Rfam assigns this 420-nucleotide part of an RNA from Aegilops tauschii to the family "Eukaryotic large subunit ribosomal RNA".
RNA sequence: UGACCCCAGGUCAGGCGGGACUACCCGUUGAGUUUAAGCAUAUAAAUAAGCGGAGGAGAAGAAACUUACAAGGAUUCCCCUGGUAACGGCGAGCGAACCGGGAGCAGCCCAGCUUGAGAAUCGGGCGGCUGUGCCGUCCGAAUUGUAGUCUGGAGAGGCGUCCUCAGCGACGGACCGGGCCCAAGUCCCCUAGAAAGGGGCGCCUGGGAGGGUGAGAGCCCCGUCCGUCCUGGACCCUGUCGCCCCACGAGGCACCGUCAACGAGUCGGGUUGUUUGGGAAUGCAGCCCAAAUCGGGCGGUAGACUCCGUCCAAGGCUAAAUACAGGCGAGAGACCGAUAGCGAACAAGUACCGCAAGGGAAAGAUGAAAAGGACUUUGAAAAGAGAGUCAAAGAGUGCUUGAAAUUGCCGGGAGGGAAG
Numbered sequence: 001u002g003a004c005c006c007c008a009g010g011u012c013a014g015g016c017g018g019g020a021c022u023a024c025c026c027g028u029u030g031a032g033u034u035u036a037a038g039c040a041u042a043u044a045a046a047u048a049a050g051c052g053g054a055g056g057a058g059a060a061g062a063a064a065c066u067u068a069c070a071a072g073g074a075u076u077c078c079c080c081u082g083g084u085a086a087c088g089g090c091g092a093g094c095g096a097a098c099c100g101g102g103a104g105c106a107g108c109c110c111a112g113c114u115u116g117a118g119a120a121u122c123g124g125g126c127g128g129c130u131g132u133g134c135c136g137u138c139c140g141a142a143u144u145g146u147a148g149u150c151u152g153g154a155g156a157g158g159c160g161u162c163c164u165c166a167g168c169g170a171c172g173g174a175c176c177g178g179g180c181c182c183a184a185g186u187c188c189c190c191u192a193g194a195a196a197g198g199g200g201c202g203c204c205u206g207g208g209a210g211g212g213u214g215a216g217a218g219c220c221c222c223g224u225c226c227g228u229c230c231u232g233g234a235c236c237c238u239g240u241c242g243c244c245c246c247a248c249g250a251g252g253c254a255c256c257g258u259c260a261a262c263g264a265g266u267c268g269g270g271u272u273g274u275u276u277g278g279g280a281a282u283g284c285a286g287c288c289c290a291a292a293u294c295g296g297g298c299g300g301u302a303g304a305c306u307c308c309g310u311c312c313a314a315g316g317c318u319a320a321a322u323a324c325a326g327g328c329g330a331g332a333g334a335c336c337g338a339u340a341g342c343g344a345a346c347a348a349g350u351a352c353c354g355c356a357a358g359g360g361a362a363a364g365a366u367g368a369a370a371a372g373g374a375c376u377u378u379g380a381a382a383a384g385a386g387a388g389u390c391a392a393a394g395a396g397u398g399c400u401u402g403a404a405a406u407u408g409c410c411g412g413g414a415g416g417g418a419a420g
Stems, first nucleotide, its partner, number of pairs: 024055001025053005035042002065072002076103004087093001106318004112150001114148003118144002121141007155259002157256002160253001162252004167243005172237002175233005181227001185201001187200004204208001211221002268289007295312005352359002375386004
The source organism's lineage runs through Eukaryota, Euphyllophyta, Mesangiospermae, Poaceae and Aegilops tauschii. The base pairs follow the family's consensus structure, which is taken from published work.